A member of the RNA family "Small nucleolar RNA R30/Z108" from Triticum aestivum, 96 nucleotides long. The family is grouped with related families in Rfam's "SNORD100 clan". NCBI's taxonomy places the organism under Eukaryota, Streptophyta, Petrosaviidae, commelinids, Triticum. snoR30 is a C/D box small nucleolar RNA which acts as a methylation guide for 18S ribosomal RNA in plants. Pairs were carried over by alignment from the consensus structure, which was predicted with PFOLD.

[Rfam]
RNA sequence: UCUAGCUGCGAUGAGGAUAACAAGCUCCCUCUUCUGAAAGCAUUGACGACAUUGUUGGCAGAAUCGAACCAAUUAUACAUUGCCACCACUGAGCAG
Numbered sequence: 001u002c003u004a005g006c007u008g009c010g011a012u013g014a015g016g017a018u019a020a021c022a023a024g025c026u027c028c029c030u031c032u033u034c035u036g037a038a039a040g041c042a043u044u045g046a047c048g049a050c051a052u053u054g055u056u057g058g059c060a061g062a063a064u065c066g067a068a069c070c071a072a073u074u075a076u077a078c079a080u081u082g083c084c085a086c087c088a089c090u091g092a093g094c095a096g
Stems, first nucleotide, its partner, number of pairs: 006096004
Dot-bracket structure: .....((((...................................................................................))))